[Rfam]
RNA sequence: CCACUACUGUUGCUAACAUGCAACUCUGUUGUGUAAAAGCUGGAAUUGCACUUUAGCAAUGGUGAUGG
Numbered sequence: 001c002c003a004c005u006a007c008u009g010u011u012g013c014u015a016a017c018a019u020g021c022a023a024c025u026c027u028g029u030u031g032u033g034u035a036a037a038a039g040c041u042g043g044a045a046u047u048g049c050a051c052u053u054u055a056g057c058a059a060u061g062g063u064g065a066u067g068g
Base pairs, nucleotide, nucleotide: 005064006063007062008061009060010059011058012057013056014055015054016053019050020049021048022047023046025044026043027042028041
A member of the RNA family "mir-367 microRNA precursor family" from Pelodiscus sinensis, 68 nucleotides long. The family's consensus secondary structure was predicted with RNAalifold.